[Rfam]
Bacterial large subunit ribosomal RNA: a 588-nucleotide part of an RNA from Corynebacterium riegelii. Lineage of the source: Bacteria > Bacillati > Actinomycetota > Corynebacteriaceae > Corynebacterium. It scores 2672 bits against the family's covariance model.

RNA sequence: CGCGCGGCAGGACGAAAAGACCCCGGGACCUUCACUACAGCUUGGUAUUGGUAUUCGGUGCGGUUUGUGUAGGAUAGGUGGGAGACGUUGAUACAGCCACGCCAGUGGUUGUGGAGUCGUUGUUGAAAUACCACUCUGACCGUAGUGGAUACCUGAACCUUGGCCCAUGAUCUGGGUUGGGGACAGUGCCUGGUGGGUAGUUUAACUGGGGCGGUUGCCUCCCAAAAUGUAACGGAGGCGCCCAAAGGUUCCCUCAGCCUGGUUGGCAAUCAGGUGUUUAGAGUGUAAGUGCACAAGGGAGCUUGACUGCGAGACUUACAAGUCGAGCAGGGACGAAAGUCGGGACUAGUGAUCCGGCACCUACUUGUGGAUGUGGUGUCGCUCAACGGAUAAAAGGUACCCCGGGGAUAACAGGCUGAUCUUCCCCAAGAGUCCAUAUCGACGGGAUGGUUUGGCACCUCGAUGUCGGCUCGUCGCAUCCUGGGGCUGGAGUAGGUCCCAAGGGUUGGGCUGUUCGCCCAUUAAAGCGGCACGCGAGCUGGGUUCAGAACGUCGUGAGACAGUUCGGUCUCUAUCCGCCGCGCGCGU
Dot-bracket structure: ((((((((.(((.((......(((((((((((.((((...((.((((..((((((((.(((((((.(.........(((((..(((......((((((((....))))))))...)))............)))))).))))))).))))))))....(((.((((((.....))))))))).....)))).))....))))..((((.....))))((((((...........))))))(.((....((((((((.((((((.......)))))).....))((......))....))))))....((((..(((......)))..)))).(((....))).))..........(((((((.((........))))))))).....)......)))))..))))))........(((.(((.((((...((.......))...)))).))..))))..........(((((((((((..((.((((((......))))))...)).(((((.....))))).....)))))..)..)))).).....(((((((....))).))))....))..)))))))))))...